[Rfam]
RNA: S4-Clostridia ribosomal protein leader
RNA sequence: GAAAGGCCGUGAUACAUACCGCACGGCUGGAUACCGGGCGUAUCCCAAUUAGG
Numbered sequence: 001g002a003a004a005g006g007c008c009g010u011g012a013u014a015c016a017u018a019c020c021g022c023a024c025g026g027c028u029g030g031a032u033a034c035c036g037g038g039c040g041u042a043u044c045c046c047a048a049u050u051a052g053g
Stems, first nucleotide, its partner, number of pairs: 005028007029045006
Dot-bracket structure: ....(((((((..........)))))))((((((.....))))))........